[Rfam]
RNA sequence: CCGUCCCCUGGAGUUCCCUUGACCACUUCAUUGGGGCUAUUCCACCCUAAACCAAGGGUAAUCCUUCCCCUACUGAAGUGUUUGGGGGAACUCUGGGUGCCAU
Numbered sequence: 001c002c003g004u005c006c007c008c009u010g011g012a013g014u015u016c017c018c019u020u021g022a023c024c025a026c027u028u029c030a031u032u033g034g035g036g037c038u039a040u041u042c043c044a045c046c047c048u049a050a051a052c053c054a055a056g057g058g059u060a061a062u063c064c065u066u067c068c069c070c071u072a073c074u075g076a077a078g079u080g081u082u083u084g085g086g087g088g089a090a091c092u093c094u095g096g097g098u099g100c101c102a103u
Base pairs, nucleotide, nucleotide: 005099007097008096009095011093012092013091014090015089016088017087018086019085020084022083024080025079026078027077028076029075030074032072033071034070035069
RNA: mir-395 microRNA precursor family